[Rfam]
RNA sequence: GUGCGGGCCCUGUGCAACGAAGCGCCGUGAACCAUGUCAGGCGGGGAACCGAGCAGCAUUAAGCGGUUGUUUUCGUGUGCCGCAGCAAGCCUGCACACC
Numbered sequence: 001g002u003g004c005g006g007g008c009c010c011u012g013u014g015c016a017a018c019g020a021a022g023c024g025c026c027g028u029g030a031a032c033c034a035u036g037u038c039a040g041g042c043g044g045g046g047a048a049c050c051g052a053g054c055a056g057c058a059u060u061a062a063g064c065g066g067u068u069g070u071u072u073u074c075g076u077g078u079g080c081c082g083c084a085g086c087a088a089g090c091c092u093g094c095a096c097a098c099c
Stems, first nucleotide, its partner, number of pairs: 004093005010085005015077001017076006024067005034059004042051003
Shown here is a 99-nucleotide RNA from Ruminococcus champanellensis, a member of the family "Bacterial small signal recognition particle RNA". NCBI's taxonomy places the organism under Bacteria, Bacillota, Oscillospiraceae, Ruminococcus, Ruminococcus champanellensis.